[Rfam]
RNA sequence: AAUAGGAGAAUGAUAAAUCAGAUUUUUCUUCUUAAUUUCCAGCAAUUUUCUCCUGAAAAAAUUUAAAUAUGACUAAAAAUGUUAAAAAUUAGAAGGAGAAAUCUGAUUUGUAAUUUUCCUAUU
Numbered sequence: 001a002a003u004a005g006g007a008g009a010a011u012g013a014u015a016a017a018u019c020a021g022a023u024u025u026u027u028c029u030u031c032u033u034a035a036u037u038u039c040c041a042g043c044a045a046u047u048u049u050c051u052c053c054u055g056a057a058a059a060a061a062u063u064u065a066a067a068u069a070u071g072a073c074u075a076a077a078a079a080u081g082u083u084a085a086a087a088a089u090u091a092g093a094a095g096g097a098g099a100a101a102u103c104u105g106a107u108u109u110g111u112a113a114u115u116u117u118c119c120u121a122u123u
Base pairs, nucleotide, nucleotide: 001123002122003121004120005119006118007117008116009115010114011113013111014110015109016108017107018106019105020104021103022102023101024100025099026098027097029095030094032092033091034090035089036088037087038086041083042082046078047077048076
RNA: MIR7504 microRNA precursor family
Organism: Gossypium aridum